This 49-nucleotide RNA sequence belongs to the Rfam family "DUF3800-XI RNA".

RNA sequence: UGGGCUGGUCGGAAGACCUUGGUCCACCUGGACGGCGGGGCAAGCCCCC
Numbered sequence: 001u002g003g004g005c006u007g008g009u010c011g012g013a014a015g016a017c018c019u020u021g022g023u024c025c026a027c028c029u030g031g032a033c034g035g036c037g038g039g040g041c042a043a044g045c046c047c048c049c
Base pairs, nucleotide, nucleotide: 001026002025003024004023005022006021007018008017009016010015

Rfam classes the family as a small RNA. Actinobacteria, Firmicutes, Proteobacteria, Spirochaetes (1 example).